[Rfam]
RNA sequence: GGGGUCAAGCCGGUCCAGGGAACUUGGCAAAUUGGUCCCGUAACUUCGGGAGAAGGGAUGCCUGCGGUGUAGACCGCAGGUCGCAGUGACAAGGGCGGGCGGACUGUUUAUCAAAAACAUAGCUCCCAGCAAGCCCGAAAGGGUUUGUACUGGGGGUGACGUCUGCUCAGCACCGGUAUCUGAAUCCCCCGUUCAAGGGGGGUAAGGACCGGUAAACGGCGGGGGUAACUCUGACCCUCUUAAGGUAGCGUAAUGCCUUGCCAGUUAAAUGCUGGCUCUGCGAACGACGUAACUAGCCCGCCACUGUCCCGGGCCGGCGCCCCCUGAAAAGCUAUCCUGGUGAGAAGGCCAGGGA
Numbered sequence: 001g002g003g004g005u006c007a008a009g010c011c012g013g014u015c016c017a018g019g020g021a022a023c024u025u026g027g028c029a030a031a032u033u034g035g036u037c038c039c040g041u042a043a044c045u046u047c048g049g050g051a052g053a054a055g056g057g058a059u060g061c062c063u064g065c066g067g068u069g070u071a072g073a074c075c076g077c078a079g080g081u082c083g084c085a086g087u088g089a090c091a092a093g094g095g096c097g098g099g100c101g102g103a104c105u106g107u108u109u110a111u112c113a114a115a116a117a118c119a120u121a122g123c124u125c126c127c128a129g130c131a132a133g134c135c136c137g138a139a140a141g142g143g144u145u146u147g148u149a150c151u152g153g154g155g156g157u158g159a160c161g162u163c164u165g166c167u168c169a170g171c172a173c174c175g176g177u178a179u180c181u182g183a184a185u186c187c188c189c190c191g192u193u194c195a196a197g198g199g200g201g202g203u204a205a206g207g208a209c210c211g212g213u214a215a216a217c218g219g220c221g222g223g224g225g226u227a228a229c230u231c232u233g234a235c236c237c238u239c240u241u242a243a244g245g246u247a248g249c250g251u252a253a254u255g256c257c258u259u260g261c262c263a264g265u266u267a268a269a270u271g272c273u274g275g276c277u278c279u280g281c282g283a284a285c286g287a288c289g290u291a292a293c294u295a296g297c298c299c300g301c302c303a304c305u306g307u308c309c310c311g312g313g314c315c316g317g318c319g320c321c322c323c324c325u326g327a328a329a330a331g332c333u334a335u336c337c338u339g340g341u342g343a344g345a346a347g348g349c350c351a352g353g354g355a
Stems, first nucleotide, its partner, number of pairs: 001323004009318008018309003035059005044049001060081009082086001094302007101294002105119003122157008130147001133144004160289004165220003170217001172213005179208003186201005221239006240244001260276006336353005
RNA: Archaeal large subunit ribosomal RNA, nucleotides 1756 to 2110